[Rfam]
RNA sequence: GGGUAAUGCCUAAUGGACCCUUAUCACCUCAGGCACUCGGUCAUGCUGUGGGACGCAUUUCGGUCCUUAGACGCCAGUCGUCAGGGGUGUGAUAUGAGGUGGGGUGAAAUGCCCC
Numbered sequence: 001g002g003g004u005a006a007u008g009c010c011u012a013a014u015g016g017a018c019c020c021u022u023a024u025c026a027c028c029u030c031a032g033g034c035a036c037u038c039g040g041u042c043a044u045g046c047u048g049u050g051g052g053a054c055g056c057a058u059u060u061c062g063g064u065c066c067u068u069a070g071a072c073g074c075c076a077g078u079c080g081u082c083a084g085g086g087g088u089g090u091g092a093u094a095u096g097a098g099g100u101g102g103g104g105u106g107a108a109a110u111g112c113c114c115c
Stems, first nucleotide, its partner, number of pairs: 001020004007035005013029001036098004040093008050067005070082004101115005
Dot-bracket structure: [[[[..(((((.(...]]]]........).)))))((((((((((((..(((((........)))))..((((.....))))...)))))))).))))..(((((.....)))))